The family of this 106-nucleotide RNA sequence from Caldibacillus debilis is "SAM riboswitch aptamer (S box leader)". Gene Ontology term of the family: regulation of gene expression. From the family's description: The SAM riboswitch is found upstream of a number of genes which code for proteins involved in methionine or cysteine biosynthesis in Gram-positive bacteria. NCBI's taxonomy places the organism under Bacteria, Bacillati, Bacilli, Bacillaceae, Caldibacillus debilis.
RNA sequence: AUCUUAUCCAGAGAGGCGGAGGGACUGGCCCGGUGAAGCCUCAGCAACCAGCCGGAUUCCGGCCAGGUGCUAAUUCCAGCAGAACUUCUGUUCUGGAAGAUAAGAU
Numbered sequence: 001a002u003c004u005u006a007u008c009c010a011g012a013g014a015g016g017c018g019g020a021g022g023g024a025c026u027g028g029c030c031c032g033g034u035g036a037a038g039c040c041u042c043a044g045c046a047a048c049c050a051g052c053c054g055g056a057u058u059c060c061g062g063c064c065a066g067g068u069g070c071u072a073a074u075u076c077c078a079g080c081a082g083a084a085c086u087u088c089u090g091u092u093c094u095g096g097a098a099g100a101u102a103a104g105a106u
Stems, first nucleotide, its partner, number of pairs: 001106008013042005021031003025079004043071004048067002051063003075098001080095006